[Rfam]
Record summary: A member of the RNA family "ToxI antitoxin" from Bacillus anthracis, 34 nucleotides long. The family's RNA type in Rfam is antitoxin RNA. Taxonomically the source falls in Bacillus anthracis (Bacteria, Bacillota, Bacillaceae, Bacillus). Rfam links the family to the GO terms mRNA binding and negative regulation of translation. Pairs were carried over by alignment from the consensus structure, which is taken from published work.
RNA sequence: AAAUUGGUGUAGCCUUACCGUAGUAGGCAUUCAU
Numbered sequence: 001a002a003a004u005u006g007g008u009g010u011a012g013c014c015u016u017a018c019c020g021u022a023g024u025a026g027g028c029a030u031u032c033a034u
Stems, first nucleotide, its partner, number of pairs: 006019003012028004
Dot-bracket structure: .....[[[...((((.]]].....))))......